[Rfam]
RNA: Small nucleolar RNA snR191
RNA sequence: CACCAAAGACCUUUGUCAGGGUGGCGAUGAUGAUCUCCGGAUCAAAUAUCUACAUCGUUGCCUGUUACGUCCUUGGAAGAUCAAUGCUACCCGCCUGUGGUCCCUUGCACCGUUCUGGUGCUUGGUGCUCUUGCCGUUUUGGCUCGAGCCUUGUCCACGCCUGCCGAUAGUUUUUAUUGGCAUCCUAGGGUAGUCACGGAAUCUUGUUGAGUUGGACCUACCCCAAACUUAUGGGUUUGUCCGUAGUAUAGAAGCCGACACUU
Numbered sequence: 001c002a003c004c005a006a007a008g009a010c011c012u013u014u015g016u017c018a019g020g021g022u023g024g025c026g027a028u029g030a031u032g033a034u035c036u037c038c039g040g041a042u043c044a045a046a047u048a049u050c051u052a053c054a055u056c057g058u059u060g061c062c063u064g065u066u067a068c069g070u071c072c073u074u075g076g077a078a079g080a081u082c083a084a085u086g087c088u089a090c091c092c093g094c095c096u097g098u099g100g101u102c103c104c105u106u107g108c109a110c111c112g113u114u115c116u117g118g119u120g121c122u123u124g125g126u127g128c129u130c131u132u133g134c135c136g137u138u139u140u141g142g143c144u145c146g147a148g149c150c151u152u153g154u155c156c157a158c159g160c161c162u163g164c165c166g167a168u169a170g171u172u173u174u175u176a177u178u179g180g181c182a183u184c185c186u187a188g189g190g191u192a193g194u195c196a197c198g199g200a201a202u203c204u205u206g207u208u209g210a211g212u213u214g215g216a217c218c219u220a221c222c223c224c225a226a227a228c229u230u231a232u233g234g235g236u237u238u239g240u241c242c243g244u245a246g247u248a249u250a251g252a253a254g255c256c257g258a259c260a261c262u263u
Stems, first nucleotide, its partner, number of pairs: 003076004019063010031044005087193006096159005102153001104148004164180007197257003202252003213243005220236004